The record is a 77-nucleotide RNA sequence from Parnassius apollo, which matches "Mammalian CPEB3 ribozyme" in Rfam. Lineage of the source: Eukaryota > Ditrysia > Obtectomera > Papilionoidea > Parnassius. A search with the family's covariance model found it, with a score of 58 bits. Pairs were carried over by alignment from the consensus structure, which is taken from published work. A reference for the family is Teixeira et al. (2004), "Autocatalytic RNA cleavage in the human beta-globin pre-mRNA promotes transcription termination", Nature.

RNA sequence: UAGUAAGUAUAGGGGGUCAUUGUAGAAGCGUGCUCGUCGCGACCCCUGCCAGCUCUUUUCAGGGCUGCAAUUCUACA
Numbered sequence: 001u002a003g004u005a006a007g008u009a010u011a012g013g014g015g016g017u018c019a020u021u022g023u024a025g026a027a028g029c030g031u032g033c034u035c036g037u038c039g040c041g042a043c044c045c046c047u048g049c050c051a052g053c054u055c056u057u058u059u060c061a062g063g064g065c066u067g068c069a070a071u072u073c074u075a076c077a
Base pairs, nucleotide, nucleotide: 013046014045015044016043017042018041021077022076023075024074025073026072027071028040029039030038050067051066052065053064054063055062056061
Dot-bracket structure: ............[[[[[[..((((((((((.......)))]]]]]]...(((((((....)))))))...)))))))